[Rfam]
RNA sequence: UCUGCAGAAUGACAGCCCCCUCUGAAACCUCCACGGGGAGGGGGCUUGAUGGGGGCAGA
Numbered sequence: 001u002c003u004g005c006a007g008a009a010u011g012a013c014a015g016c017c018c019c020c021u022c023u024g025a026a027a028c029c030u031c032c033a034c035g036g037g038g039a040g041g042g043g044g045c046u047u048g049a050u051g052g053g054g055g056c057a058g059a
Stems, first nucleotide, its partner, number of pairs: 001059005014046010028036002

Description: A member of the RNA family "Selenocysteine insertion sequence 1" from Zonotrichia albicollis, 59 nucleotides long. By type it is a cis-regulatory element. A search with the family's covariance model found it, with a score of 40 bits. The base pairs follow the family's consensus structure, which is taken from published work. NCBI's taxonomy places the organism under Eukaryota, Craniata, Telluraves, Passeriformes, Zonotrichia. The incorporation of selenocysteine into a protein sequence is directed by an in-frame UGA codon (usually a stop codon) within the coding region of the mRNA. Selenoprotein mRNAs contain a conserved secondary structure in the 3' UTR that is required for the distinction of UGA stop from UGA selenocysteine. The selenocysteine insertion sequence (SECIS) is around 60 nt in length and adopts a hairpin structure which is sufficiently well-defined and conserved to act as a computational screen for selenoprotein genes.